[Rfam]
RNA: pan motif
Organism: Pueribacillus theae
RNA sequence: UGGGCAGUAUCAUAGCGGAGCUGCACCGCGGAACUGCACCAACAGCACUUUAUCAUGUGAAAUAUUGUCGUAUUCUGCCUUGAUCCAUAGGACGGACGGGGACAGAGGG
Numbered sequence: 001u002g003g004g005c006a007g008u009a010u011c012a013u014a015g016c017g018g019a020g021c022u023g024c025a026c027c028g029c030g031g032a033a034c035u036g037c038a039c040c041a042a043c044a045g046c047a048c049u050u051u052a053u054c055a056u057g058u059g060a061a062a063u064a065u066u067g068u069c070g071u072a073u074u075c076u077g078c079c080u081u082g083a084u085c086c087a088u089a090g091g092a093c094g095g096a097c098g099g100g101g102a103c104a105g106a107g108g109g
Stems, first nucleotide, its partner, number of pairs: 001041003004037005010032002075105003078101005084096003